[Rfam]
RNA sequence: AGCCAGUGAUGACACUUGAUAAACUUUUCUGACACCUCGUAUGACUGCUGCCAUGCAGCAUUUGAUUAUGUGUUCUGUCUGAGGCUC
Numbered sequence: 001a002g003c004c005a006g007u008g009a010u011g012a013c014a015c016u017u018g019a020u021a022a023a024c025u026u027u028u029c030u031g032a033c034a035c036c037u038c039g040u041a042u043g044a045c046u047g048c049u050g051c052c053a054u055g056c057a058g059c060a061u062u063u064g065a066u067u068a069u070g071u072g073u074u075c076u077g078u079c080u081g082a083g084g085c086u087c
Base pairs, nucleotide, nucleotide: 001086002085003084004083047059048058049057050056051055

A member of the RNA family "Small nucleolar RNA SNORD60" from Anguilla anguilla, 87 nucleotides long. The source organism's lineage runs through Eukaryota, Eumetazoa, Bilateria, Deuterostomia and Anguilla. The literature on the family includes a 1996 paper in Cell by Kiss-Laszlo et al., "Site-specific ribose methylation of preribosomal RNA: a novel function for small nucleolar RNAs". Its Rfam clan is "SNORD60 clan". The base pairs follow the family's consensus structure, which was predicted with PFOLD.